[Rfam]
RNA sequence: AUAGUGCGGCCAUGCGUUGCUGAUCCCGAUCAGCGCCAUGCCAGCAGCCGGGUCUUCAGGCUGCGCCGUGGAACAACCACGUAGACCGAUCCAGUCCGCUUCGCAUCAUUCUCGCGGACGCACGCCACAGCCGGCGUCGAUGC
Numbered sequence: 001a002u003a004g005u006g007c008g009g010c011c012a013u014g015c016g017u018u019g020c021u022g023a024u025c026c027c028g029a030u031c032a033g034c035g036c037c038a039u040g041c042c043a044g045c046a047g048c049c050g051g052g053u054c055u056u057c058a059g060g061c062u063g064c065g066c067c068g069u070g071g072a073a074c075a076a077c078c079a080c081g082u083a084g085a086c087c088g089a090u091c092c093a094g095u096c097c098g099c100u101u102c103g104c105a106u107c108a109u110u111c112u113c114g115c116g117g118a119c120g121c122a123c124g125c126c127a128c129a130g131c132c133g134g135c136g137u138c139g140a141u142g143c
Base pairs, nucleotide, nucleotide: 011040012039013038014037019034020033021032022031023030024029044064045063046062047061048060049059051087052086053085054084067081068080069079070078071077114143115142116141122137123136124135125134126133